[Rfam]
RNA: MAT2A 3'UTR stem loop C
Organism: Diceros bicornis
RNA sequence: GCUUUCUGAACAGCUAGUGUAGCUACAGAGAAACCGGCUUCCCUCAGAGAGC
Number, nucleotide and partner (000 for none) at each position: 001g052002c051003u050004u049005u048006c047007u046008g045009a044010a000011c000012a039013g038014c037015u036016a000017g034018u033019g026020u025021a000022g000023c000024u000025a020026c019027a000028g000029a000030g000031a000032a000033a018034c017035c000036g015037g014038c013039u012040u000041c000042c000043c000044u009045c008046a007047g006048a005049g004050a003051g002052c001